RNA sequence: GUAAAGAGACCUACUGCAGAGCAGGUUUUUACUAUACAUGAUUCGCCUUACGCUCUCCUCGAUCAAAAUUUGAGCGUAGGGCUUUUU
Numbered sequence: 001g002u003a004a005a006g007a008g009a010c011c012u013a014c015u016g017c018a019g020a021g022c023a024g025g026u027u028u029u030u031a032c033u034a035u036a037c038a039u040g041a042u043u044c045g046c047c048u049u050a051c052g053c054u055c056u057c058c059u060c061g062a063u064c065a066a067a068a069u070u071u072g073a074g075c076g077u078a079g080g081g082c083u084u085u086u087u
Stems, first nucleotide, its partner, number of pairs: 005030008016022002045082011059068001
The family of this 87-nucleotide sequence from Streptococcus phage Javan457 is "S. pyogenes small RNA 779816". Taxonomically the source falls in Caudoviricetes (Viruses, Duplodnaviria, Heunggongvirae, Uroviricota).